[Rfam]
RNA sequence: AAAGUCGGUCAGGCAAUCGCUCUUUGUCAAACAAGGAGAGGAAAGUCCGGGCUCCAUAGGGUAAAGUGCCAGGUAAUGCCUGGGAGGCGCGAGCCUACGGAAAGUGCCACAGAAAAUAUACCGCCUGUCUUGUGCUUAGCACAGCAGGUAAGGGUGAAAUGGUGCGGUAAGAGCGCACCGCACGGUUGGCAACAGUCGUGGCAGGGUAAACCCCACUCGGAGCAAGACCAAAUAGGAAUCCUACUAGCGCUGCUAGAACGUAUGACCCGUACGGGAUUCGGGUAGGUCGCUUGAGGCAUGUGGUGACACAUGUCCUAGAUGAAUGAUUGUCCAUGACAGAACCCGGCUUAUCGACCGACUUUUUUC
Dot-bracket structure: ((((((((((((((((((.((((((((...))))))))....[[[.[[[[[((((...[[[[..(((((((((.....)))))(((((....)))).)((...(((((............((((((((..(((.....)))..))))))..)).......((((((.......))))))(((((((((....)))))))).)..)))..)))))))).))))...((((......((((((.................(((((.]]]]))))))))))).....))))......((((((((....))))))))..........)))))))..........]]]]]]]].).))))))))))....
A member of the RNA family "Bacterial RNase P class A" from Legionella lansingensis, 366 nucleotides long. Gene Ontology terms of the family: tRNA processing, dimeric ribonuclease P complex and ribonuclease P activity. It scores 341 bits against the family's covariance model. Rfam describes the family as follows. Ribonuclease P (RNase P) is a ubiquitous endoribonuclease, found in archaea, bacteria and eukarya as well as chloroplasts and mitochondria.